[Rfam]
RNA: COG3943 RNA
RNA sequence: CACGCUCCACACAAAUAUCUAUUAUUUGAAUCAGUGGCCAUCCAACGAGGGAUGAAACACCAGUAACUAUGGUUGAUAGGGAUAUCAGCAGUUAGUUACAAAAGGUGU
Numbered sequence: 001c002a003c004g005c006u007c008c009a010c011a012c013a014a015a016u017a018u019c020u021a022u023u024a025u026u027u028g029a030a031u032c033a034g035u036g037g038c039c040a041u042c043c044a045a046c047g048a049g050g051g052a053u054g055a056a057a058c059a060c061c062a063g064u065a066a067c068u069a070u071g072g073u074u075g076a077u078a079g080g081g082a083u084a085u086c087a088g089c090a091g092u093u094a095g096u097u098a099c100a101a102a103a104g105g106u107g108u
Stems, first nucleotide, its partner, number of pairs: 012028005039054005057108005063099007072089006